RNA sequence: UGCGAUAAAGGCAAACUUAGUGAAAACUAAGGACGCAAAGCUAUGGGUCUUCCGGGUAAAGCUGAUGACUGCCAAGCCACCGAAA
Number, nucleotide and partner (000 for none) at each position: 001u085002g000003c082004g081005a000006u000007a000008a000009a000010g000011g036012c035013a000014a000015a000016c031017u030018u029019a028020g027021u026022g000023a000024a000025a000026a021027c020028u019029a018030a017031g016032g000033a000034c071035g012036c011037a000038a000039a000040g077041c076042u075043a000044u074045g073046g072047g069048u068049c067050u000051u000052c000053c000054g000055g000056g000057u000058a000059a000060a000061g000062c000063u000064g000065a000066u000067g049068a048069c047070u000071g034072c046073c045074a044075a042076g041077c040078c000079a000080c000081c004082g003083a000084a000085a001